[Rfam]
RNA sequence: GCCGGUCCUCGGUAGUGGCCCCCGGGCACAUCCCGGGUGCUUCGAUCGAAGACCGGC
Numbered sequence: 001g002c003c004g005g006u007c008c009u010c011g012g013u014a015g016u017g018g019c020c021c022c023c024g025g026g027c028a029c030a031u032c033c034c035g036g037g038u039g040c041u042u043c044g045a046u047c048g049a050a051g052a053c054c055g056g057c
Stems, first nucleotide, its partner, number of pairs: 001057007009049005017041003021037006
Shown here is a 57-nucleotide RNA from Streptomyces sp. ISL-10, a member of the family "Actino-pnp RNA". It is annotated as a cis-regulatory element. A search with the family's covariance model found it, with a score of 65 bits.